[Rfam]
RNA sequence: CUUAAGCACAUGUGUAAGUCGCUCUGGAUAAGGGCGUCUGCCAAAUGCCGUAAA
Numbered sequence: 001c002u003u004a005a006g007c008a009c010a011u012g013u014g015u016a017a018g019u020c021g022c023u024c025u026g027g028a029u030a031a032g033g034g035c036g037u038c039u040g041c042c043a044a045a046u047g048c049c050g051u052a053a054a
Stems, first nucleotide, its partner, number of pairs: 013043001014041003020036006

A member of the RNA family "UnaL2 LINE 3' element" from Denticeps clupeoides, 54 nucleotides long. The eel long interspersed element (LINE) UnaL2 and its partner short interspersed element (SINE) share a conserved 3' tail containing a stem-loop that is critical for their retrotransposition. Presumably, the first step of retrotransposition is the recognition of their 3' tails by UnaL2-encoded reverse transcriptase. The solution structure of a 17-nucleotide RNA derived from the 3' tail of UnaL2 was determined by NMR. Lineage of the source: Eukaryota > Osteoglossocephalai > Otomorpha > Denticipitoidei > Denticeps. For this family Rfam cites "Solution structure of an RNA stem-loop derived from the 3' conserved region of eel LINE UnaL2" (Baba et al., RNA, 2004). The family's RNA type in Rfam is cis-regulatory element. The base pairs follow the family's consensus structure, which is taken from published work.